[Rfam]
RNA sequence: UGCCUAAGUAGAGGCGCUGUAAUUAAGAGUAUUUAUUUGGAGCUGGCAAGCUGUAAUAAAUAAAGAAAGGAAUUGCAGCCGAAGGAAAUUAAUUUUUGCAAGGUUAUUUCCUGGUCUUACAUAAAAUAUGUGUAAGGCUGUCACCUUAUAUUAAAGGUGGAGAGCUACAAAGGUC
Numbered sequence: 001u002g003c004c005u006a007a008g009u010a011g012a013g014g015c016g017c018u019g020u021a022a023u024u025a026a027g028a029g030u031a032u033u034u035a036u037u038u039g040g041a042g043c044u045g046g047c048a049a050g051c052u053g054u055a056a057u058a059a060a061u062a063a064a065g066a067a068a069g070g071a072a073u074u075g076c077a078g079c080c081g082a083a084g085g086a087a088a089u090u091a092a093u094u095u096u097u098g099c100a101a102g103g104u105u106a107u108u109u110c111c112u113g114g115u116c117u118u119a120c121a122u123a124a125a126a127u128a129u130g131u132g133u134a135a136g137g138c139u140g141u142c143a144c145c146u147u148a149u150a151u152u153a154a155a156g157g158u159g160g161a162g163a164g165c166u167a168c169a170a171a172g173g174u175c
Base pairs, nucleotide, nucleotide: 008168009167010166011165016079017078018077019076020075021074022073023072024071032064033063034062035061036060037059038058039057083112084111085110086109087108088107089106091104093102094101113139114138115137116136117135118134119133120132121131122130123129141160142159143158144157145156146155147154
Lysine riboswitch aptamer: a 175-nucleotide RNA sequence from Clostridium acetireducens. Gene Ontology term of the family: lysine biosynthetic process. A search with the family's covariance model found it, with a score of 122 bits.